MIR1862 microRNA precursor family: an 89-nucleotide RNA sequence from Oryza sativa.

RNA sequence: UACUCCGUCCGUCCCAAAAUAUAGCAAUCUUGUACUGGAUGAGAUACAUCCUAGUACAAGAUUGCUAUAUUUUGGGACGGAGGGAUUAC
Numbered sequence: 001u002a003c004u005c006c007g008u009c010c011g012u013c014c015c016a017a018a019a020u021a022u023a024g025c026a027a028u029c030u031u032g033u034a035c036u037g038g039a040u041g042a043g044a045u046a047c048a049u050c051c052u053a054g055u056a057c058a059a060g061a062u063u064g065c066u067a068u069a070u071u072u073u074g075g076g077a078c079g080g081a082g083g084g085a086u087u088a089c
Base pairs, nucleotide, nucleotide: 001088002087004085005084006083008081009080010079011078012077013076014075015074016073017072018071019070020069021068022067023066024065025064026063027062028061029060030059031058032057033056034055035054037051038050039049
Dot-bracket structure: ((.(((.((((((((((((((((((((((((((((.(((.........)))..)))))))))))))))))))))))))))).))).)).
The organism belongs to Oryza sativa, within Eukaryota.